This 92-nucleotide sequence from Desulforamulus profundi belongs to the Rfam family "NiCo (Nickel/Cobalt) riboswitch aptamer".
RNA sequence: ACAGUACAAACUGAGCAGGCGAUGAACUUAUAAGUAAGUUCAUGGGGCUGGGCCUAACUAGGCAGCGGGUAAAUAUAACUCGUGGGACAGUA
Numbered sequence: 001a002c003a004g005u006a007c008a009a010a011c012u013g014a015g016c017a018g019g020c021g022a023u024g025a026a027c028u029u030a031u032a033a034g035u036a037a038g039u040u041c042a043u044g045g046g047g048c049u050g051g052g053c054c055u056a057a058c059u060a061g062g063c064a065g066c067g068g069g070u071a072a073a074u075a076u077a078a079c080u081c082g083u084g085g086g087a088c089a090g091u092a
Stems, first nucleotide, its partner, number of pairs: 010091004016086001018049003022043006052063004065083006
For this family Rfam cites "Bacterial riboswitches cooperatively bind Ni(2+) or Co(2+) ions and control expression of heavy metal transporters" (Furukawa et al., Mol Cell, 2015). The source organism's lineage runs through Bacteria, Bacillati, Clostridia, Peptococcaceae and Desulforamulus. Its family is annotated with cobalt ion binding and metal ion homeostasis in the Gene Ontology.